[Rfam]
RNA sequence: GCGAUGAGCUAAUUGAAUAAGUCGACAGAUCGCCUUUAGGGGCAAUGCGCGAUGUGGCGCGCAUUCUCGUCGCCUCAAUACGCAGAAAAAGACGCCUAUUUUUAGGCGUCUU
Numbered sequence: 001g002c003g004a005u006g007a008g009c010u011a012a013u014u015g016a017a018u019a020a021g022u023c024g025a026c027a028g029a030u031c032g033c034c035u036u037u038a039g040g041g042g043c044a045a046u047g048c049g050c051g052a053u054g055u056g057g058c059g060c061g062c063a064u065u066c067u068c069g070u071c072g073c074c075u076c077a078a079u080a081c082g083c084a085g086a087a088a089a090a091g092a093c094g095c096c097u098a099u100u101u102u103u104a105g106g107c108g109u110c111u112u
Stems, first nucleotide, its partner, number of pairs: 013078004023072004027067003033041002046063002049060003089112009
This 112-nucleotide RNA sequence from Cytobacillus horneckiae belongs to the Rfam family "BsrF". It is annotated as a small RNA. The family's consensus secondary structure was predicted with WAR. A reference for the family is Saito et al. (2008), "Novel small RNA-encoding genes in the intergenic regions of Bacillus subtilis", Gene.